[Rfam]
RNA: M-box riboswitch aptamer (ykoK leader)
Nucleotides: 171
Base pairs, nucleotide, nucleotide: 005169006168007167008166009165010164011158012157013096015153016152017151020147021146022145025143026142027141028140029139030138031137032136039114040113041112042111043110045074046073047072048071049070054065055064056063057062081105082104083103084102087099088098089097116131117130118129
Number, partner (000 for none) and nucleotide at each position: 001000g002000c003000g004000g005169c006168a007167c008166c009165u010164c011158g012157u013096u014000c015153g016152g017151u018000g019000a020147g021146g022145c023000g024000u025143c026142u027141g028140c029139a030138c031137g032136g033000a034000c035000a036000c037000a038000g039114g040113c041112c042111a043110c044000u045074g046073a047072c048071c049070u050000c051000a052000c053000c054065c055064g056063u057062c058000g059000a060000g061000a062057g063056a064055c065054g066000c067000u068000c069000c070049a071048g072047g073046u074045c075000a076000g077000g078000a079000c080000a081105g082104g083103u084102c085000u086000c087099c088098c089097c090000g091000g092000c093000a094000c095000a096013a097089g098088g099087g100000g101000u102084g103083a104082c105081c106000c107000c108000a109000a110043g111042u112041g113040g114039c115000u116131u117130c118129c119000c120000g121000u122000a123000c124000g125000u126000c127000a128000g129118g130117g131116a132000u133000a134000a135000g136032c137031c138030g139029u140028g141027c142026a143025g144000u145022g146021c147020c148000a149000a150000a151017g152016c153015u154000c155000u156000g157012a158011c159000g160000a161000g162000g163000a164010g165009g166008g167007g168006u169005g170000u171000a